[Rfam]
A member of the RNA family "Actinobacteria sRNA Ms_IGR-7" from Crystallibacter crystallopoietes, 117 nucleotides long.
NCBI's taxonomy places the organism under Bacteria, Bacillati, Actinomycetota, Micrococcales, Crystallibacter crystallopoietes.
It is annotated as a small RNA.

RNA sequence: CGGAAGGGUGCUCCUUCGCUAGGCAGAAUAACGGUCUCGACAACCACUAUUUUCCCAGCUCAGAGCACCCUUUCCCUGCUUAAACACACGUUUUCAAACGCUCACCCAUGAAAACCC
Numbered sequence: 001c002g003g004a005a006g007g008g009u010g011c012u013c014c015u016u017c018g019c020u021a022g023g024c025a026g027a028a029u030a031a032c033g034g035u036c037u038c039g040a041c042a043a044c045c046a047c048u049a050u051u052u053u054c055c056c057a058g059c060u061c062a063g064a065g066c067a068c069c070c071u072u073u074c075c076c077u078g079c080u081u082a083a084a085c086a087c088a089c090g091u092u093u094u095c096a097a098a099c100g101c102u103c104a105c106c107c108a109u110g111a112a113a114a115c116c117c
Stems, first nucleotide, its partner, number of pairs: 002074012015062001019058002022055002026052004033045003100116001102111003